[Rfam]
Nucleotides: 155
Base pairs, nucleotide, nucleotide: 005151006150008148009147011142013094015137016136017135020131021130022129025127027125028124029123030122031121032120039112040111041110042109043108045076046075047074048073055066057064058063082103083102084101085100088097089096090095
Number, partner (000 for none) and nucleotide at each position: 001000a002000a003000c004000a005151a006150a007000c008148c009147u010000c011142g012000g013094u014000a015137g016136g017135u018000g019000a020131g021130g022129u023000u024000a025127c026000c027125g028124a029123a030122a031121g032120g033000a034000u035000a036000u037000g038000g039112g040111u041110u042109g043108c044000u045076a046075c047074c048073g049000u050000a051000a052000a053000a054000g055066a056000a057064u058063g059000g060000a061000a062000a063058c064057a065000c066055u067000c068000u069000g070000a071000g072000c073048u074047g075046g076045u077000a078000a079000g080000c081000a082103a083102g084101u085100u086000u087000u088097g089096u090095c091000g092000u093000a094013a095090g096089g097088c098000u099000u100085a101084a102083c103082u104000u105000a106000a107000u108043g109042c110041a111040a112039c113000u114000u115000c116000a117000g118000u119000g120032c121031c122030u123029u124028u125027u126000a127025g128000a129022g130021c131020c132000a133000a134000a135017a136016c137015u138000u139000g140000a141000a142011c143000g144000a145000g146000a147009a148008g149000a150006u151005u152000a153000u154000u155000u
The record is a 155-nucleotide RNA from Sporanaerobacter sp. PP17-6a, which matches "M-box riboswitch aptamer (ykoK leader)" in Rfam. NCBI's taxonomy places the organism under Bacteria, Bacillati, Tissierellia, Tissierellales, Sporanaerobacter. It scores 103 bits against the family's covariance model. M-box riboswitch, also know as ykoK leader is described as a metaloregulatory RNA that sense divalent metals and function as a genetic control element of genes related to divalent metal transport in bacteria. Rfam links the family to the GO terms regulation of gene expression and response to magnesium ion. The pairing is the family consensus, mapped onto this sequence. The literature on the family includes a 2010 paper in RNA Biol by Ramesh and Winkler, "Magnesium-sensing riboswitches in bacteria".